This 46-nucleotide sequence from Candidatus Korobacter versatilis belongs to the Rfam family "Acido-Lenti-1 RNA". The family has 87 seed sequences and 2,607 matches in Rfam 15.1. The family's RNA type in Rfam is small RNA.
RNA sequence: CCCACCACUCUCGUGGUGGGCUUAUUUAUUGCGUCGCUGCGCGACU
Numbered sequence: 001c002c003c004a005c006c007a008c009u010c011u012c013g014u015g016g017u018g019g020g021c022u023u024a025u026u027u028a029u030u031g032c033g034u035c036g037c038u039g040c041g042c043g044a045c046u
Stems, first nucleotide, its partner, number of pairs: 001020008033045005
The sequence is in the family's curated seed alignment.